[Rfam]
RNA sequence: GAGCUUAUUGACAAAGUGCCCGGUCGGAACAGGCUGCCAGAUCGUAAACACGCCGUGAAUACAUCCUUGUAGGCUCGAUCCGCGCCAUCCAUGGCGCGGACGGUUU
Number, nucleotide and partner (000 for none) at each position: 001g000002a000003g000004c000005u000006u000007a000008u000009u000010g000011a000012c000013a106014a105015a104016g000017u102018g101019c000020c027021c026022g000023g000024u000025c000026g021027g020028a000029a000030c000031a000032g000033g000034c000035u000036g000037c000038c000039a000040g065041a064042u063043c000044g062045u061046a060047a000048a000049c000050a056051c055052g000053c000054c000055g051056u050057g000058a000059a000060u046061a045062c044063a042064u041065c040066c000067u000068u000069g000070u000071a000072g000073g000074c000075u000076c000077g000078a000079u000080c099081c098082g097083c096084g095085c094086c093087a092088u000089c000090c000091a000092u087093g086094g085095c084096g083097c082098g081099g080100a000101c018102g017103g000104u015105u014106u013
RNA: Yersinia sRNA 224